Record summary:
This 108-nucleotide RNA from Herminiimonas arsenicoxydans belongs to the Rfam family "TPP riboswitch aptamer (THI element)". The base pairs follow the family's consensus structure, which is taken from published work. Gene Ontology term of the family: thiamine pyrophosphate binding.
RNA sequence: GUAAAAAGCUAGGGGUCCUAGGCAUAUGCGUUCCGCAUGUGCCGGGUGAGAAAAACCCUUGAACCUGAUCUGGAUAAUGCCAGCGAAGGGAAGCUGCCGAGACGUGUA
Numbered sequence: 001g002u003a004a005a006a007a008g009c010u011a012g013g014g015g016u017c018c019u020a021g022g023c024a025u026a027u028g029c030g031u032u033c034c035g036c037a038u039g040u041g042c043c044g045g046g047u048g049a050g051a052a053a054a055a056c057c058c059u060u061g062a063a064c065c066u067g068a069u070c071u072g073g074a075u076a077a078u079g080c081c082a083g084c085g086a087a088g089g090g091a092a093g094c095u096g097c098c099g100a101g102a103c104g105u106g107u108a
Base pairs, nucleotide, nucleotide: 007095008094009093010092011059012058013057014056016053017046018045019044021042064089065088066087070083071082072081073080